This 69-nucleotide RNA sequence from Anguilla anguilla belongs to the Rfam family "mir-8/mir-141/mir-200 microRNA precursor family". NCBI's taxonomy places the organism under Eukaryota, Chordata, Euteleostomi, Neopterygii, Anguilla. Rfam links the family to the GO terms miRNA-mediated post-transcriptional gene silencing and RISC complex. The literature on the family includes a 2001 paper in Science by Lagos-Quintana et al., "Identification of novel genes coding for small expressed RNAs". Its Rfam clan is "mir-8 microRNA precursor clan".

[Rfam]
RNA sequence: AUUGGCGUCUUACCAGACAAGGUUAGAUCUAGAUAUUCCUGUCUAAUACUGUCUGGUAAUGCCGUCCAU
Number, nucleotide and partner (000 for none) at each position: 001a000002u068003u000004g066005g065006c064007g063008u000009c061010u059011u058012a057013c056014c055015a054016g053017a052018c051019a050020a000021g000022g047023u046024u045025a044026g043027a042028u000029c000030u000031a000032g000033a000034u000035a000036u000037u000038c000039c000040u000041g000042u027043c026044u025045a024046a023047u022048a000049c000050u019051g018052u017053c016054u015055g014056g013057u012058a011059a010060u000061g009062c000063c007064g006065u005066c004067c000068a002069u000